[Rfam]
RNA sequence: CUCUAUGUGCUCACUGCAUGGGGUGUGCAUAUUUUUAUUCAAUACCCAGAGUAUGCAGUGUGAACAUAAUAGAG
Numbered sequence: 001c002u003c004u005a006u007g008u009g010c011u012c013a014c015u016g017c018a019u020g021g022g023g024u025g026u027g028c029a030u031a032u033u034u035u036u037a038u039u040c041a042a043u044a045c046c047c048a049g050a051g052u053a054u055g056c057a058g059u060g061u062g063a064a065c066a067u068a069a070u071a072g073a074g
Base pairs, nucleotide, nucleotide: 001074002073003072004071005067006066007065008064010062012060013059014058015057016056017055018054019053020052024048025047027045029043030042